Rfam assigns this 85-nucleotide RNA sequence from Sphaeramia orbicularis to the family "Small nucleolar RNA SNORD35". Taxonomically the source falls in Sphaeramia (Eukaryota, Eumetazoa, Apogonoidei, Apogonidae). Rfam's curators write: U35 is a C/D box snoRNA located in intron 6 of ribosomal protein L13A and intron 3 of ribosomal protein S11 in humans and at homologous positions in mouse and chicken ribosomal protein genes. U35 guides the methylation of 2'-O-ribose sites in 28S rRNA. Gene Ontology terms of the family: RNA processing and nucleolus. A reference for the family is Nicoloso et al. (1996), "Intron-encoded, antisense small nucleolar RNAs: the characterization of nine novel species points to their direct role as guides for the 2'-O-ribose methylation of rRNAs", J Mol Biol. It scores 67 bits against the family's covariance model. The base pairs follow the family's consensus structure, which was predicted with PFOLD.
[Rfam]
RNA sequence: UGCAAAUGAUGCUUUUUCUCACGAUGGUCUUCCAAGCCCACUGGGUUCUGACGACACUGCCUUAUGGCAACGCUGAUGCAGCCUG
Numbered sequence: 001u002g003c004a005a006a007u008g009a010u011g012c013u014u015u016u017u018c019u020c021a022c023g024a025u026g027g028u029c030u031u032c033c034a035a036g037c038c039c040a041c042u043g044g045g046u047u048c049u050g051a052c053g054a055c056a057c058u059g060c061c062u063u064a065u066g067g068c069a070a071c072g073c074u075g076a077u078g079c080a081g082c083c084u085g
Base pairs, nucleotide, nucleotide: 001080002079003078004077